Shown here is a 356-nucleotide RNA from Pacificimonas flava, a member of the family "Alphaproteobacteria transfer-messenger RNA". A reference for the family is Williams and Bartel (1996), "Phylogenetic analysis of tmRNA secondary structure", RNA. About the family: Bacterial tmRNA, also known as 10Sa RNA or SsrA, is named for its dual tRNA and mRNA-like properties. The match comes from Rfam's covariance-model search (203 bits).

RNA sequence: GAUCUUGAAACUUCGCCGCACCCAGCUUACAUUUCAUCUGCCGGCUUAGCGGCCGGAUAUGGUGAUAAAUGUUGCCGUGAAAUAGGUUGCAUGGACCCGGGGGCGGUACCCGGCGGCUCCACCAAAAGGCGCCCGCACGAUAGCAGGGCGCCUCCUGAUGGGGCCGAAACAGCUUCGACAUGUGCUGAAAGACGGUGAUUUUGCCCGGCCUGAGGACGCCGUAAAACUGUUCAAACUCUAUAGAUGCCAACGAUAACGAGGCAUUUGCGAUUGCUGCGUAACUGAUGGCCUAACGGCUAAGGUUACUUAGACAAAAGCGGGGUUCGGGGCGCACCUUUCAACAGAAGCGCCAGUCC
Numbered sequence: 001g002a003u004c005u006u007g008a009a010a011c012u013u014c015g016c017c018g019c020a021c022c023c024a025g026c027u028u029a030c031a032u033u034u035c036a037u038c039u040g041c042c043g044g045c046u047u048a049g050c051g052g053c054c055g056g057a058u059a060u061g062g063u064g065a066u067a068a069a070u071g072u073u074g075c076c077g078u079g080a081a082a083u084a085g086g087u088u089g090c091a092u093g094g095a096c097c098c099g100g101g102g103g104c105g106g107u108a109c110c111c112g113g114c115g116g117c118u119c120c121a122c123c124a125a126a127a128g129g130c131g132c133c134c135g136c137a138c139g140a141u142a143g144c145a146g147g148g149c150g151c152c153u154c155c156u157g158a159u160g161g162g163g164c165c166g167a168a169a170c171a172g173c174u175u176c177g178a179c180a181u182g183u184g185c186u187g188a189a190a191g192a193c194g195g196u197g198a199u200u201u202u203g204c205c206c207g208g209c210c211u212g213a214g215g216a217c218g219c220c221g222u223a224a225a226a227c228u229g230u231u232c233a234a235a236c237u238c239u240a241u242a243g244a245u246g247c248c249a250a251c252g253a254u255a256a257c258g259a260g261g262c263a264u265u266u267g268c269g270a271u272u273g274c275u276g277c278g279u280a281a282c283u284g285a286u287g288g289c290c291u292a293a294c295g296g297c298u299a300a301g302g303u304u305a306c307u308u309a310g311a312c313a314a315a316a317g318c319g320g321g322g323u324u325c326g327g328g329g330c331g332c333a334c335c336u337u338u339c340a341a342c343a344g345a346a347g348c349g350c351c352a353g354u355c356c
Stems, first nucleotide, its partner, number of pairs: 041056006061205005072198007087184001091181003097113005114166007206221004211233003215230001320336004328351004